[Rfam]
RNA sequence: AGGUCAUUUCAAAGAGAGCUUAUGGACCAAAACCAGGAGCUCUUAGCACUGUGACCUAAGACUGGAGUUCUCUAUAGUAACAGACACUCAAUAGUGCUUUGUUUUCAUGAGGAGAUAUAAGG
Numbered sequence: 001a002g003g004u005c006a007u008u009u010c011a012a013a014g015a016g017a018g019c020u021u022a023u024g025g026a027c028c029a030a031a032a033c034c035a036g037g038a039g040c041u042c043u044u045a046g047c048a049c050u051g052u053g054a055c056c057u058a059a060g061a062c063u064g065g066a067g068u069u070c071u072c073u074a075u076a077g078u079a080a081c082a083g084a085c086a087c088u089c090a091a092u093a094g095u096g097c098u099u100u101g102u103u104u105u106c107a108u109g110a111g112g113a114g115a116u117a118u119a120a121g122g
Stems, first nucleotide, its partner, number of pairs: 002056006014044008023036001024034002069115005076108001080100001082098002085096004
RNA: Small nucleolar RNA SNORA25
Organism: Cnephaeus nilssonii